[Rfam]
RNA: SAM riboswitch aptamer (S box leader)
RNA sequence: AACUCAUCACGAGGGGCAGAGGGAACGGCCCGACGAAGCCCCAGCAACCAGCCGAUCGGCGGCCAGGUGCUAAUUCCGUCCCGGUCGAAAGUCGACCAGGGAGAGAUGAAGG
Numbered sequence: 001a002a003c004u005c006a007u008c009a010c011g012a013g014g015g016g017c018a019g020a021g022g023g024a025a026c027g028g029c030c031c032g033a034c035g036a037a038g039c040c041c042c043a044g045c046a047a048c049c050a051g052c053c054g055a056u057c058g059g060c061g062g063c064c065a066g067g068u069g070c071u072a073a074u075u076c077c078g079u080c081c082c083g084g085u086c087g088a089a090a091g092u093c094g095a096c097c098a099g100g101g102a103g104a105g106a107u108g109a110a111g112g
Base pairs, nucleotide, nucleotide: 004109005108006107007106008105013042014041015040016039017038021031022030023029025079026078027077028076043071044070045069046068048067049066051063052062053061075104080101081100082099084097